[Rfam]
RNA sequence: ACCCCAGCUAGGCCCGUGAACCGAAAAGCGGGAUACCUUAACCCGGCUGCUGGGGUUCUGAUUGAGGG
Numbered sequence: 001a002c003c004c005c006a007g008c009u010a011g012g013c014c015c016g017u018g019a020a021c022c023g024a025a026a027a028g029c030g031g032g033a034u035a036c037c038u039u040a041a042c043c044c045g046g047c048u049g050c051u052g053g054g055g056u057u058c059u060g061a062u063u064g065a066g067g068g
Stems, first nucleotide, its partner, number of pairs: 001056008011022002029045004036068004
Annotation: Shown here is a 68-nucleotide sequence from Polaromonas sp., a member of the family "int-alpA RNA". The base pairs follow the family's consensus structure, which is taken from published work. NCBI's taxonomy places the organism under Bacteria, Pseudomonadota, Betaproteobacteria, Burkholderiales, Polaromonas. About the family: Acidobacteria (1 example), Planctomycetes (1 example), Proteobacteria.